[Rfam]
RNA sequence: CAAUCAUGACAGUGAUGGCAUGAUGAAUUGUAAGAAGUCAGCCGAAGCCAUAGUAGUCCAUAAAGAGGACGAAGGGC
Numbered sequence: 001c002a003a004u005c006a007u008g009a010c011a012g013u014g015a016u017g018g019c020a021u022g023a024u025g026a027a028u029u030g031u032a033a034g035a036a037g038u039c040a041g042c043c044g045a046a047g048c049c050a051u052a053g054u055a056g057u058c059c060a061u062a063a064a065g066a067g068g069a070c071g072a073a074g075g076g077c
Base pairs, nucleotide, nucleotide: 001025002024004023005022006021007020008019010017011016038045039044047077048076049075056070057069058068059067
A member of the RNA family "Group II catalytic intron D1-D4-1" from Salipaludibacillus neizhouensis, 77 nucleotides long. The family has 237 seed sequences and 2,508 matches in Rfam 15.1. Pairs were carried over by alignment from the consensus structure. The source organism's lineage runs through Bacteria, Bacilli, Caryophanales, Bacillaceae and Salipaludibacillus. Group II introns are found in rRNA, tRNA and mRNA of organelles in fungi, plants and protists, and also in mRNA in bacteria. It scores 70 bits against the family's covariance model.